[Rfam]
RNA sequence: CCUUCGCUGAUGAGUGACUCUUUGACUUUCGUUCUUCUGAGUCUGCUGAAGCCAUUUGUCUAUUCUGAGAAGG
Numbered sequence: 001c002c003u004u005c006g007c008u009g010a011u012g013a014g015u016g017a018c019u020c021u022u023u024g025a026c027u028u029u030c031g032u033u034c035u036u037c038u039g040a041g042u043c044u045g046c047u048g049a050a051g052c053c054a055u056u057u058g059u060c061u062a063u064u065c066u067g068a069g070a071a072g073g
Stems, first nucleotide, its partner, number of pairs: 001073003005069001
Annotation:
A member of the RNA family "Small nucleolar RNA SNORD59" from Ornithorhynchus anatinus, 73 nucleotides long. Rfam links the family to the GO terms nucleolus and RNA processing. The source organism's lineage runs through Eukaryota, Eumetazoa, Bilateria, Amniota and Ornithorhynchus. The base pairs follow the family's consensus structure, which was predicted with ILM. Clan: SNORD59 clan. It is annotated as a C/D-box small nucleolar RNA.